[Rfam]
RNA sequence: GAAGCCUGCCAGACCGCCGCUGGUGCUAGUGCCGAAAGGCCGCACUGGAGGAACGUCCGGACUGCACAGGACAGCGUAGCAGCUAACGGCUGCCCACCGUGAGGUGAGGAUCAGAGCAACAGAGACGAGUCCGGGGGGCGUACCGCAAGGUAAACCACCCGGGGUGAAACGGGCAAUCUCUACGCGCAGCAAUACCAAGUAGGCCAGCGUUGAUGUGGUUCCGCAGAGUUGGCGGGUAGGUAGCGUCGAGCCGUGGUGGCGACACCCGGCCCAGAGUAAUGGCGGUCACGCCUGGGGCAACCCAGGUGCACAGAAUCCGGCUUAUCGGCAGACUUCACAC
Numbered sequence: 001g002a003a004g005c006c007u008g009c010c011a012g013a014c015c016g017c018c019g020c021u022g023g024u025g026c027u028a029g030u031g032c033c034g035a036a037a038g039g040c041c042g043c044a045c046u047g048g049a050g051g052a053a054c055g056u057c058c059g060g061a062c063u064g065c066a067c068a069g070g071a072c073a074g075c076g077u078a079g080c081a082g083c084u085a086a087c088g089g090c091u092g093c094c095c096a097c098c099g100u101g102a103g104g105u106g107a108g109g110a111u112c113a114g115a116g117c118a119a120c121a122g123a124g125a126c127g128a129g130u131c132c133g134g135g136g137g138g139c140g141u142a143c144c145g146c147a148a149g150g151u152a153a154a155c156c157a158c159c160c161g162g163g164g165u166g167a168a169a170c171g172g173g174c175a176a177u178c179u180c181u182a183c184g185c186g187c188a189g190c191a192a193u194a195c196c197a198a199g200u201a202g203g204c205c206a207g208c209g210u211u212g213a214u215g216u217g218g219u220u221c222c223g224c225a226g227a228g229u230u231g232g233c234g235g236g237u238a239g240g241u242a243g244c245g246u247c248g249a250g251c252c253g254u255g256g257u258g259g260c261g262a263c264a265c266c267c268g269g270c271c272c273a274g275a276g277u278a279a280u281g282g283c284g285g286u287c288a289c290g291c292c293u294g295g296g297g298c299a300a301c302c303c304a305g306g307u308g309c310a311c312a313g314a315a316u317c318c319g320g321c322u323u324a325u326c327g328g329c330a331g332a333c334u335u336c337a338c339a340c
Stems, first nucleotide, its partner, number of pairs: 001336004006331005011325001012287007020048007053323001055321001057320005062189004069220002074185005079093005094108001095106004109180002114178002116174002131163002133159002193242004203233006214225004250270004255266004

The family of this 340-nucleotide RNA from Comamonas sp. JNW is "Bacterial RNase P class A". Pairs were carried over by alignment from the consensus structure, which is taken from published work. The family's RNA type in Rfam is ribozyme. Its Rfam clan is "RNaseP clan".